[Rfam]
RNA sequence: AUGCAAAUGAUGAACUCUACUCGGAUUCCCCUUCAGGACUUCAUGAAUAUGCCUGCG
Number, nucleotide and partner (000 for none) at each position: 001a000002u057003g056004c055005a054006a000007a000008u000009g000010a000011u000012g000013a000014a000015c000016u000017c000018u000019a000020c000021u000022c000023g000024g000025a000026u000027u000028c000029c000030c000031c000032u000033u000034c000035a000036g000037g000038a000039c000040u000041u000042c000043a000044u000045g000046a000047a000048u000049a000050u000051g000052c000053c000054u005055g004056c003057g002
Notes: A member of the RNA family "Small nucleolar RNA snoR60" from Gossypium trilobum, 57 nucleotides long. The family has 10 seed sequences and 1,133 matches in Rfam 15.1. The match comes from Rfam's covariance-model search (49 bits). It is annotated as a C/D-box small nucleolar RNA. The family is grouped with related families in Rfam's "SNORD101 clan". On this family, see Barneche et al., J Biol Chem 2000: "Fibrillarin genes encode both a conserved nucleolar protein and a novel small nucleolar RNA involved in ribosomal RNA methylation in Arabidopsis thaliana". Pairs were carried over by alignment from the consensus structure, which was predicted with PFOLD.